RNA sequence: CGGGGUAUAGCUCAGCCUGGUAGAGCGCCAGCUUUGGGAGCUGGACGUCGGGGGUUCGAAUCCCUCUACCCCGA
Numbered sequence: 001c002g003g004g005g006u007a008u009a010g011c012u013c014a015g016c017c018u019g020g021u022a023g024a025g026c027g028c029c030a031g032c033u034u035u036g037g038g039a040g041c042u043g044g045a046c047g048u049c050g051g052g053g054g055u056u057c058g059a060a061u062c063c064c065u066c067u068a069c070c071c072c073g074a
Stems, first nucleotide, its partner, number of pairs: 001073007010026004028044005050066005
RNA: tRNA
Organism: Mizugakiibacter sediminis